[Rfam]
RNA sequence: CUAUAGUGUUACGUAUACCUUCAUAUAUCCUCGAUAAUAUGGUUCGAGAGUCUCUACCGGGUCACCUUAAAUGGCCUGACUAUGAAGGCAGGAUAUUCUUUU
Numbered sequence: 001c002u003a004u005a006g007u008g009u010u011a012c013g014u015a016u017a018c019c020u021u022c023a024u025a026u027a028u029c030c031u032c033g034a035u036a037a038u039a040u041g042g043u044u045c046g047a048g049a050g051u052c053u054c055u056a057c058c059g060g061g062u063c064a065c066c067u068u069a070a071a072u073g074g075c076c077u078g079a080c081u082a083u084g085a086a087g088g089c090a091g092g093a094u095a096u097u098c099u100u101u102u
Base pairs, nucleotide, nucleotide: 018088019087020086021085022084023083024082025081030048031047032046033045034044058078059077060076061075062074063073064072
RNA: Purine riboswitch aptamer
Organism: Priestia veravalensis